The record is a 96-nucleotide RNA, which matches "DUF3800-III RNA" in Rfam.
RNA sequence: AAGCGGGUUCGUAAAGCCUGGGAGUGCUGGGCCUCUGUGAGGCGCCCAAUCCGGCAUAGAACCGGUGGUUAUCGGCGCCCAGGGUGAGCCCGCCUU
Numbered sequence: 001a002a003g004c005g006g007g008u009u010c011g012u013a014a015a016g017c018c019u020g021g022g023a024g025u026g027c028u029g030g031g032c033c034u035c036u037g038u039g040a041g042g043c044g045c046c047c048a049a050u051c052c053g054g055c056a057u058a059g060a061a062c063c064g065g066u067g068g069u070u071a072u073c074g075g076c077g078c079c080c081a082g083g084g085u086g087a088g089c090c091c092g093c094c095u096u
Base pairs, nucleotide, nucleotide: 001095003093004092005091006090008088009087010086011085017083018082019081020080021079025077026076027075031043032042033041034040035039051065052064053063054062